The family of this 47-nucleotide RNA sequence from Acer yangbiense is "Plastid-ycf3 group II-D1 intron". Gene Ontology term of the family: Group II intron splicing. NCBI's taxonomy places the organism under Eukaryota, Mesangiospermae, Gunneridae, Pentapetalae, Acer. The family has 385 seed sequences and 1,488 matches in Rfam 15.1. Rfam's curators write: Plastid rpl16 is a non-coding RNA (ncRNA) recognised in plastids.

RNA sequence: AUUCCUUAUGUCGUGUAUCCCAGAUUAGUGCAGCCUCAGAUGCUUCA
Numbered sequence: 001a002u003u004c005c006u007u008a009u010g011u012c013g014u015g016u017a018u019c020c021c022a023g024a025u026u027a028g029u030g031c032a033g034c035c036u037c038a039g040a041u042g043c044u045u046c047a
Base pairs, nucleotide, nucleotide: 010025011024012023032044033043034042